[Rfam]
RNA sequence: UGUCCCAUUUUAGUCCCUUCCAUUCACUCUGUCAUGAAUGGAUGGUUAUGCUAAUGGGAUAGAUUAAACACUGUCAUGGUCUGAAGGUGUGGCUAGCAUUCUGUGCACCACACUAAAUAGAAUGACAGAACAACGAAAA
Dot-bracket structure: ...((((........((.(......................).)).........))))..............((((..............((....................))........)))).............
Small nucleolar RNA SNORA29: a 139-nucleotide RNA sequence from Sphaeramia orbicularis.
Rfam links the family to the GO terms nucleolus and RNA processing.
ACA29 is a member of the H/ACA class of snoRNA that guide the sites of modification of uridines to pseudouridines.
The family is grouped with related families in Rfam's "SNORA20 clan".
NCBI's taxonomy places the organism under Eukaryota, Teleostomi, Eurypterygia, Kurtiformes, Sphaeramia.
The literature on the family includes a 2001 paper in EMBO J by Huttenhofer et al., "RNomics: an experimental approach that identifies 201 candidates for novel, small, non-messenger RNAs in mouse".